[Rfam]
RNA sequence: GUCAACUACCCCGGCCCAAAGGCCGGAGCUUGAAACGCAACUGACAAGCUCGAGUUGACCAGGCAAAGCGGUAACCAACCCGCUACGUUGCGAAUAGGUGCAAGACCGACGUUGGGAUGCUUCCUUAGUUCCAACCUCUCGAAGCUCCGGUUGCAGACAAGCGACAGGGUAAGCACGAAACGGAUCGGGGCAGAUCGCCGAUUCGCAACAUUGCCGAAGGGAGACGCCC
Numbered sequence: 001g002u003c004a005a006c007u008a009c010c011c012c013g014g015c016c017c018a019a020a021g022g023c024c025g026g027a028g029c030u031u032g033a034a035a036c037g038c039a040a041c042u043g044a045c046a047a048g049c050u051c052g053a054g055u056u057g058a059c060c061a062g063g064c065a066a067a068g069c070g071g072u073a074a075c076c077a078a079c080c081c082g083c084u085a086c087g088u089u090g091c092g093a094a095u096a097g098g099u100g101c102a103a104g105a106c107c108g109a110c111g112u113u114g115g116g117a118u119g120c121u122u123c124c125u126u127a128g129u130u131c132c133a134a135c136c137u138c139u140c141g142a143a144g145c146u147c148c149g150g151u152u153g154c155a156g157a158c159a160a161g162c163g164a165c166a167g168g169g170u171a172a173g174c175a176c177g178a179a180a181c182g183g184a185u186c187g188g189g190g191c192a193g194a195u196c197g198c199c200g201a202u203u204c205g206c207a208a209c210a211u212u213g214c215c216g217a218a219g220g221g222a223g224a225c226g227c228c229c
Stems, first nucleotide, its partner, number of pairs: 001059007010028001012025002015022002029048004062215005067084005087209009097199001106141001111135008119225001121223006144191009

Source information:
HNH endonuclease-associated RNA and ORF (HEARO) RNA: a 229-nucleotide sequence from Cupriavidus yeoncheonensis. It is annotated as a non-coding RNA gene. The source organism's lineage runs through Bacteria, Pseudomonadati, Pseudomonadota, Burkholderiaceae and Cupriavidus.